[Rfam]
RNA sequence: CCGCACGGUGCCUCCCGGGCAUCUUGAAUCCACAUGACGUGAACGCCCCGAUGCACGUGCGAAAUCAUCGCCGUUCGUGUUGCAGUUCAUCCCCAAUUUUCCACAGUUGAUCUGUGUCAAAGUAACGGUGAAAUUC
Numbered sequence: 001c002c003g004c005a006c007g008g009u010g011c012c013u014c015c016c017g018g019g020c021a022u023c024u025u026g027a028a029u030c031c032a033c034a035u036g037a038c039g040u041g042a043a044c045g046c047c048c049c050g051a052u053g054c055a056c057g058u059g060c061g062a063a064a065u066c067a068u069c070g071c072c073g074u075u076c077g078u079g080u081u082g083c084a085g086u087u088c089a090u091c092c093c094c095a096a097u098u099u100u101c102c103a104c105a106g107u108u109g110a111u112c113u114g115u116g117u118c119a120a121a122g123u124a125a126c127g128g129u130g131a132a133a134u135u136c
Stems, first nucleotide, its partner, number of pairs: 003060005010054002017048004022042002025039002070129006078119002081116005089107002
Notes: small nucleolar RNA snoR134: a 136-nucleotide RNA from Phaseolus vulgaris. The family's RNA type in Rfam is H/ACA-box small nucleolar RNA. Rfam 15.1 lists 792 matches to the family in 228 species. A search with the family's covariance model found it, with a score of 79 bits. The base pairs follow the family's consensus structure, which was predicted with RNAalifold.